RNA sequence: AUACUUACCUUAAGACGUCAGAGGAGAUCAAGAAGUCCUUUUGGCCAAGCAUGUCUUUCUAGAGUGAUGCCCGUUUUUUUCAGAAGGCGGGUUCGCUCGCCAGGUCUCCAGUAGACUGCACAUACUUGCGAAAGACGUGUUUGCUGACGUUUCGUUUCCUCGUUCCGCUAUCGUGCUGUUAUUUCUAAGAGGUGGUGGUACGAUAGUCGGAGCCCUUUGUUUCUUCUGCCUGGAGAAGUAUGAUGCUGAUUACAAGUCAGCGUUGGGGAAGCUGGAUGUGGAUCUUGGCCGUUUUAAGUACCCUGGCAUCAGUUUUAUGCGAUGGUCGAUUCCUGUGCGCGUUUUUUGCCUUGAAUUGUUCAGGGUUUGCUCUCGGGCAAAUUAUUGGGCUUUUUGGAGCAAACUACAAGCAUAGAGAAGGUGCACCAUUGCGAAGUUUGGGUAUAGGACAAGUCUUCAUUUGGUAGAGACGGGUAGGUCUUAUAAUUUUUGAUGUUCAUU
Number, nucleotide and partner (000 for none) at each position: 001a000002u000003a000004c000005u000006u000007a000008c000009c000010u486011u485012a484013a481014g480015a479016c000017g045018u044019c043020a042021g041022a039023g038024g037025a036026g000027a000028u000029c000030a000031a000032g000033a000034a000035g000036u025037c024038c023039u022040u000041u021042u020043g019044g018045c017046c143047a142048a141049g140050c139051a138052u137053g136054u135055c134056u133057u132058u131059c130060u000061a000062g000063a126064g125065u124066g000067a000068u000069g000070c000071c000072c000073g000074u000075u000076u000077u000078u000079u000080u000081c000082a000083g000084a000085a000086g000087g000088c000089g000090g000091g000092u000093u000094c000095g000096c000097u000098c000099g000100c000101c000102a000103g000104g000105u000106c000107u000108c000109c000110a000111g000112u000113a000114g000115a000116c000117u000118g000119c000120a000121c000122a000123u000124a065125c064126u063127u000128g000129c000130g059131a058132a057133a056134g055135a054136c053137g052138u051139g050140u049141u048142u047143g046144c000145u000146g000147a000148c472149g471150u470151u469152u468153c467154g000155u000156u270157u269158c268159c267160u266161c265162g213163u212164u211165c210166c209167g208168c206169u000170a000171u000172c202173g201174u200175g199176c198177u000178g000179u000180u194181a193182u192183u191184u190185c189186u000187a000188a000189g185190a184191g183192g182193u181194g180195g000196u000197g000198g176199u175200a174201c173202g172203a000204u000205a000206g168207u000208c167209g166210g165211a164212g163213c162214c000215c000216u000217u000218u000219g000220u000221u000222u000223c238224u237225u236226c235227u234228g000229c000230c000231u000232g000233g000234a227235g226236a225237a224238g223239u000240a000241u000242g000243a263244u262245g261246c260247u259248g258249a257250u000251u000252a000253c000254a000255a000256g000257u249258c248259a247260g246261c245262g244263u243264u000265g161266g160267g159268g158269a157270a156271g000272c000273u000274g000275g000276a000277u000278g000279u000280g000281g000282a000283u000284c000285u000286u000287g000288g000289c000290c000291g000292u000293u000294u000295u000296a000297a000298g000299u000300a000301c000302c000303c000304u000305g000306g000307c000308a000309u000310c000311a000312g000313u000314u000315u000316u000317a000318u000319g000320c000321g000322a000323u000324g000325g000326u000327c000328g000329a000330u000331u000332c000333c000334u000335g000336u000337g000338c000339g000340c000341g000342u000343u000344u000345u000346u000347u000348g000349c000350c000351u000352u000353g000354a000355a000356u000357u000358g000359u000360u000361c000362a000363g000364g000365g000366u000367u000368u000369g000370c000371u000372c000373u000374c000375g000376g000377g000378c000379a000380a000381a000382u000383u000384a000385u000386u000387g000388g000389g000390c000391u000392u000393u000394u000395u000396g000397g000398a000399g000400c000401a000402a000403a000404c000405u000406a000407c000408a000409a000410g000411c000412a000413u000414a000415g000416a000417g000418a000419a000420g000421g000422u000423g000424c000425a000426c000427c000428a000429u000430u000431g000432c000433g000434a000435a000436g000437u000438u448439u447440g000441g445442g000443u000444a000445u441446a000447g439448g438449a000450c000451a000452a000453g000454u000455c000456u000457u000458c000459a000460u000461u000462u000463g000464g000465u000466a000467g153468a152469g151470a150471c149472g148473g000474g000475u000476a000477g000478g000479u015480c014481u013482u000483a000484u012485a011486a010487u000488u000489u000490u000491u000492g000493a000494u000495g000496u000497u000498c000499a000500u000501u000

Rfam assigns this 501-nucleotide sequence from Lachancea dasiensis to the family "Yeast U1 spliceosomal RNA". The source organism's lineage runs through Eukaryota, Ascomycota, Saccharomycetes, Saccharomycetales and Lachancea. The family is grouped with related families in Rfam's "U1 clan". A search with the family's covariance model found it, with a score of 211 bits. Rfam's curators write: U1 is a small nuclear RNA (snRNA) component of the spliceosome (involved in pre-mRNA splicing). Its 5' end forms complementary base pairs with the 5' splice junction, thus defining the 5' donor site of an intron. There are significant differences in sequence and secondary structure between metazoan and yeast U1 snRNAs, the latter being much longer (568 nucleotides as compared to 164 nucleotides in human). Nevertheless, secondary structure predictions suggest that all U1 snRNAs share a 'common core' consisting of helices I, II, the proximal region of III, and IV. This family represents the larger yeast sequences. The base pairs follow the family's consensus structure, which is taken from published work. Gene Ontology terms of the family: pre-mRNA 5'-splice site binding, U1 snRNP and mRNA 5'-splice site recognition.